The family of this 70-nucleotide RNA sequence from Ramlibacter sp. Leaf400 is "SAH (S-adenosyl-L-homocysteine) riboswitch aptamer". The match comes from Rfam's covariance-model search (57 bits). Its family is annotated with S-adenosylhomocysteine metabolic process and regulation of gene expression in the Gene Ontology. The base pairs follow the family's consensus structure, which is taken from published work. NCBI's taxonomy places the organism under Bacteria, Pseudomonadati, Pseudomonadota, Burkholderiales, Ramlibacter.
[Rfam]
RNA sequence: CUCUCAAGGAGCGUUGCAGCGCCGGUCCCGCCGGCGUCAGGCUUGAGACCCACAACGACGCUCACCUCGA
Numbered sequence: 001c002u003c004u005c006a007a008g009g010a011g012c013g014u015u016g017c018a019g020c021g022c023c024g025g026u027c028c029c030g031c032c033g034g035c036g037u038c039a040g041g042c043u044u045g046a047g048a049c050c051c052a053c054a055a056c057g058a059c060g061c062u063c064a065c066c067u068c069g070a
Base pairs, nucleotide, nucleotide: 002048003047004046005045006044007043020036021035022034023033024032025031